[Rfam]
RNA sequence: GGCCGGAUAAGGUGCUUGCGCCGCAUCCGGCAACCAACGCCUGAUGCGACGCUUGCGCGUCUUAUCAGGCC
Number, nucleotide and partner (000 for none) at each position: 001g000002g031003c030004c029005g028006g027007a026008u025009a000010a000011g022012g021013u020014g019015c000016u000017u000018g000019c014020g013021c012022c011023g000024c000025a008026u007027c006028c005029g004030g003031c002032a000033a000034c000035c000036a000037a000038c000039g070040c069041c068042u067043g066044a065045u064046g063047c000048g061049a060050c059051g058052c057053u000054u000055g000056c000057g052058c051059g050060u049061c048062u000063u046064a045065u044066c043067a042068g041069g040070c039071c000
RNA: Nucleoid-associated noncoding RNA 4 (CssrE)
Organism: Escherichia coli